[Rfam]
RNA: Molybdenum/Tungsten riboswitch aptamer (Moco RNA motif)
RNA sequence: UUGCAAUCAAAACUCCUGGCCUUUGAUCCUACGCUGUUCUUUCAAGACAAUAUGGCGCUUGGGCCGUGGCGAAGGGAGCCACCAGGGUGCAGAGUGGAAACGCUCGUAUCUCCCGACUUAGGAAAGGUGUGAUAGUGCCGCAACU
Numbered sequence: 001u002u003g004c005a006a007u008c009a010a011a012a013c014u015c016c017u018g019g020c021c022u023u024u025g026a027u028c029c030u031a032c033g034c035u036g037u038u039c040u041u042u043c044a045a046g047a048c049a050a051u052a053u054g055g056c057g058c059u060u061g062g063g064c065c066g067u068g069g070c071g072a073a074g075g076g077a078g079c080c081a082c083c084a085g086g087g088u089g090c091a092g093a094g095u096g097g098a099a100a101c102g103c104u105c106g107u108a109u110c111u112c113c114c115g116a117c118u119u120a121g122g123a124a125a126g127g128u129g130u131g132a133u134a135g136u137g138c139c140g141c142a143a144c145u
Stems, first nucleotide, its partner, number of pairs: 003139001006136001012130002015127002019064004025058001028055002033051001035049004066082005085111006092105005112122002